[Rfam]
RNA sequence: CAAAAUACACUUACGUUAUCUCGUAUAUGUGCUGGAAUAGGCCAGCAUGUCUCUACCCGAUCACCGCAAAUGAUUGGACUACGGGAGAAUUAAUAUAAGGU
Numbered sequence: 001c002a003a004a005a006u007a008c009a010c011u012u013a014c015g016u017u018a019u020c021u022c023g024u025a026u027a028u029g030u031g032c033u034g035g036a037a038u039a040g041g042c043c044a045g046c047a048u049g050u051c052u053c054u055a056c057c058c059g060a061u062c063a064c065c066g067c068a069a070a071u072g073a074u075u076g077g078a079c080u081a082c083g084g085g086a087g088a089a090u091u092a093a094u095a096u097a098a099g100g101u
Base pairs, nucleotide, nucleotide: 019086020085021084022083023082024081025080029048030047031046032045033044034043035042057077058076059075060074061073062072063071
Shown here is a 101-nucleotide sequence from Paenibacillus sp. J45TS6, a member of the family "Purine riboswitch aptamer". It scores 78 bits against the family's covariance model. About the family: Riboswitches are metabolite binding domains within certain messenger RNAs that serve as precision sensors for their corresponding targets.